Shown here is a 179-nucleotide RNA, a member of the family "Group II catalytic intron D1-D4-5".
The family has 139 seed sequences and 720 matches in Rfam 15.1.
A reference for the family is Bonen and Vogel (2001), "The ins and outs of group II introns", Trends Genet.
Group II introns are found in rRNA, tRNA and mRNA of organelles in fungi, plants and protists, and also in mRNA in bacteria.
[Rfam]
RNA sequence: UGGAAUGAUAGGGGAACGCCUUGAAACGCCUGCCUAAAACUGCGAAUGGCAUGAUUGUGAUUAAGCACAAGAUUGUCAUAAAGCUCGCUGAAGUCGCCUGUAUGCACUUGCUAAGGUCAAAAAGGAUACAGCAAAACCAAGCCAGAGGUGGCUGGGAGUGAUAGGGCGGGGUCUAUAAA
Numbered sequence: 001u002g003g004a005a006u007g008a009u010a011g012g013g014g015a016a017c018g019c020c021u022u023g024a025a026a027c028g029c030c031u032g033c034c035u036a037a038a039a040c041u042g043c044g045a046a047u048g049g050c051a052u053g054a055u056u057g058u059g060a061u062u063a064a065g066c067a068c069a070a071g072a073u074u075g076u077c078a079u080a081a082a083g084c085u086c087g088c089u090g091a092a093g094u095c096g097c098c099u100g101u102a103u104g105c106a107c108u109u110g111c112u113a114a115g116g117u118c119a120a121a122a123a124g125g126a127u128a129c130a131g132c133a134a135a136a137c138c139a140a141g142c143c144a145g146a147g148g149u150g151g152c153u154g155g156g157a158g159u160g161a162u163a164g165g166g167c168g169g170g171g172u173c174u175a176u177a178a179a
Base pairs, nucleotide, nucleotide: 001028002027010022011021012020013019033170035169042088043087044086045085046079047078048077049076050075051074055070056069057068095168096167097166098165099164105160106159107158108157109133110132111131116129117128137156138155140153141152142151143150144149